The family of this 81-nucleotide RNA sequence from Paenibacillus sp. N3.4 is "ZMP/ZTP riboswitch aptamer (pfl RNA motif)".
RNA sequence: AAGACUCAAUGUAACUGGCGACGAGUGGGACUGACCACAAUGGAGCAUUGAGCUAUACGGCCGGUCGCCUGGGCAAAAGAG
Numbered sequence: 001a002a003g004a005c006u007c008a009a010u011g012u013a014a015c016u017g018g019c020g021a022c023g024a025g026u027g028g029g030a031c032u033g034a035c036c037a038c039a040a041u042g043g044a045g046c047a048u049u050g051a052g053c054u055a056u057a058c059g060g061c062c063g064g065u066c067g068c069c070u071g072g073g074c075a076a077a078a079g080a081g
Base pairs, nucleotide, nucleotide: 003054005052006051007050008049009048010047011046012045015042017069018068019067020066021065025038026037027036028035060074061073062072